[Rfam]
RNA sequence: UUAUUUUGUAGCCGCUUUGAGUUAUGAUAAUUACUAUGUUAAUUUAUGAGAUUAUAGUAACUUUUUGCUAAGUGGUUUACUUUAACGUUAUGAUAAAUAUUUCCAUAUGUUAUAGUAACCUAACUAUCGUAAAUAUGUAUUAAUAUUACUGUAAAUUAGUAUAUAAAAUUAUCGUAAAUGAAGGUGGCUACAGAAUAA
Number, nucleotide and partner (000 for none) at each position: 001u198002u197003a196004u195005u194006u193007u192008g191009u190010a189011g188012c187013c186014g185015c184016u183017u182018u181019g000020a000021g000022u177023u176024a175025u174026g173027a172028u171029a170030a169031u168032u167033a000034c000035u163036a162037u161038g160039u159040u158041a157042a156043u155044u154045u153046a152047u151048g000049a000050g150051a000052u148053u000054a146055u145056a144057g000058u000059a140060a000061c000062u000063u000064u133065u132066u131067g130068c129069u000070a000071a000072g127073u126074g125075g124076u123077u122078u117079a116080c115081u114082u000083u112084a111085a110086c109087g108088u107089u000090a000091u000092g102093a101094u000095a000096a000097a000098u000099a000100u000101u093102u092103c000104c000105a000106u000107a088108u087109g086110u085111u084112a083113u000114a081115g080116u079117a078118a000119c000120c000121u000122a077123a076124c075125u074126a073127u072128c000129g068130u067131a066132a065133a064134u000135a000136u000137g000138u000139a000140u059141u000142a000143a000144u056145a055146u054147u000148a052149c000150u050151g047152u046153a045154a044155a043156u042157u041158a040159g039160u038161a037162u036163a035164u000165a000166a000167a032168a031169u030170u029171a028172u027173c026174g025175u024176a023177a022178a000179u000180g000181a018182a017183g016184g015185u014186g013187g012188c011189u010190a009191c008192a007193g006194a005195a004196u003197a002198a001
Rfam assigns this 198-nucleotide RNA sequence from Miscanthus lutarioriparius to the family "MIR6217 microRNA precursor family". Taxonomically the source falls in Miscanthus (Eukaryota, Euphyllophyta, commelinids, Poaceae).